[Rfam]
RNA sequence: GUCGAGUCACCUGGGUCCGCAGCACUCAUUUUUCCUCCGCAGCAGGAAUCGACUCGAC
Numbered sequence: 001g002u003c004g005a006g007u008c009a010c011c012u013g014g015g016u017c018c019g020c021a022g023c024a025c026u027c028a029u030u031u032u033u034c035c036u037c038c039g040c041a042g043c044a045g046g047a048a049u050c051g052a053c054u055c056g057a058c
Stems, first nucleotide, its partner, number of pairs: 001058002004055005012028005032048005

This 58-nucleotide RNA sequence from Strongylocentrotus purpuratus belongs to the Rfam family "bZIP non canonical Hac1/Xbp1 intron". About the family: bZIP intron RNA is a non-canonical intron that was first reported in HAC1 gene in yeast and XBP1 gene in Metazoa. Rfam 15.1 lists 1,325 matches to the family in 1,320 species. The literature on the family includes a 2011 paper in RNA Biol by Hooks and Griffiths-Jones, "Conserved RNA structures in the non-canonical Hac1/Xbp1 intron". The sequence is in the family's curated seed alignment.